The family of this 73-nucleotide RNA from Micromonospora sp. WMMC415 is "Actino-pnp RNA". A search with the family's covariance model found it, with a score of 52 bits.
RNA sequence: ACCGGUCUCCGGUAGUGGCCCCCGGGCAAACGGCACGACGCCGACCGCCCGGGCGCUUCGAUCGAAGACCGGC
Numbered sequence: 001a002c003c004g005g006u007c008u009c010c011g012g013u014a015g016u017g018g019c020c021c022c023c024g025g026g027c028a029a030a031c032g033g034c035a036c037g038a039c040g041c042c043g044a045c046c047g048c049c050c051g052g053g054c055g056c057u058u059c060g061a062u063c064g065a066a067g068a069c070c071g072g073c
Stems, first nucleotide, its partner, number of pairs: 002072006010064004017057003021053007

It is annotated as a cis-regulatory element.